[Rfam]
RNA sequence: AUAGCUUUUAAAGCGCCAGGACUAUUCCUGAUACGGGAUAGUUGACGAGGUGGAGGGUGAUCGAGCACAUUCGGCGGAUACCUCCCGGUUGCACACAUCUCAACCGAAAUGUUUUUAUUUCAAAACGAAGAGGUGACUCUUUGUACAAAAAUAUUAACAUAUGAUGUA
Numbered sequence: 001a002u003a004g005c006u007u008u009u010a011a012a013g014c015g016c017c018a019g020g021a022c023u024a025u026u027c028c029u030g031a032u033a034c035g036g037g038a039u040a041g042u043u044g045a046c047g048a049g050g051u052g053g054a055g056g057g058u059g060a061u062c063g064a065g066c067a068c069a070u071u072c073g074g075c076g077g078a079u080a081c082c083u084c085c086c087g088g089u090u091g092c093a094c095a096c097a098u099c100u101c102a103a104c105c106g107a108a109a110u111g112u113u114u115u116u117a118u119u120u121c122a123a124a125a126c127g128a129a130g131a132g133g134u135g136a137c138u139c140u141u142u143g144u145a146c147a148a149a150a151a152u153a154u155u156a157a158c159a160u161a162u163g164a165u166g167u168a
Base pairs, nucleotide, nucleotide: 020043021042022041023040024039025038026037027036028035052085053084054083055082056081061074062073063072064071086106087105088104089103090102091101111158112157113156116153117152126143127142128141129140130139131138132137